This 262-nucleotide part of an RNA from Desulfotignum phosphitoxidans belongs to the Rfam family "Bacterial large subunit ribosomal RNA". Rfam links the family to the GO terms structural constituent of ribosome and ribosome. A reference for the family is Yusupov et al. (2001), "Crystal structure of the ribosome at 5.5 A resolution", Science.

RNA sequence: GGAUAUUUGAGGAGAUCUUUUCCUAGUACGAGAGGACCGGAAUGGACCAACCAAUGGUGUUCCAGUUGUUCCGCCAGGGGCAUUGCUGGGUAGCCAAGUUGGGCAAGGAUAACCGCUGAAAGCAUCUAAGCGGGAAGCCAACUCCAAGAUUAGAUAUCCCAUCACAUACGUGACUGAAGACCCCUUGAAGACUACAAGGUUGAUAGGCCGGGUGUGUAAGCAUGGCAACAUGUUGAGCUAACCGGUACUAAUCGGUCGUGAG
Numbered sequence: 001g002g003a004u005a006u007u008u009g010a011g012g013a014g015a016u017c018u019u020u021u022c023c024u025a026g027u028a029c030g031a032g033a034g035g036a037c038c039g040g041a042a043u044g045g046a047c048c049a050a051c052c053a054a055u056g057g058u059g060u061u062c063c064a065g066u067u068g069u070u071c072c073g074c075c076a077g078g079g080g081c082a083u084u085g086c087u088g089g090g091u092a093g094c095c096a097a098g099u100u101g102g103g104c105a106a107g108g109a110u111a112a113c114c115g116c117u118g119a120a121a122g123c124a125u126c127u128a129a130g131c132g133g134g135a136a137g138c139c140a141a142c143u144c145c146a147a148g149a150u151u152a153g154a155u156a157u158c159c160c161a162u163c164a165c166a167u168a169c170g171u172g173a174c175u176g177a178a179g180a181c182c183c184c185u186u187g188a189a190g191a192c193u194a195c196a197a198g199g200u201u202g203a204u205a206g207g208c209c210g211g212g213u214g215u216g217u218a219a220g221c222a223u224g225g226c227a228a229c230a231u232g233u234u235g236a237g238c239u240a241a242c243c244g245g246u247a248c249u250a251a252u253c254g255g256u257c258g259u260g261a262g
Stems, first nucleotide, its partner, number of pairs: 001159008011145004017045002020042004047102005055096003062089005067082006107139002113133005162173003176259001179257004183199005204250003207246005214238001220233005
Dot-bracket structure: ((((((((..((((..((.((((...............)))).)).(((((...(((....(((((((((((....))))))..)))))....))).)))))....((....(((((...........)))))....))..))))......))))))))..(((......)))..(..(((((((((.......)))))....((((((((..(.....(((((....)))))....)...))))).)))...)))).)...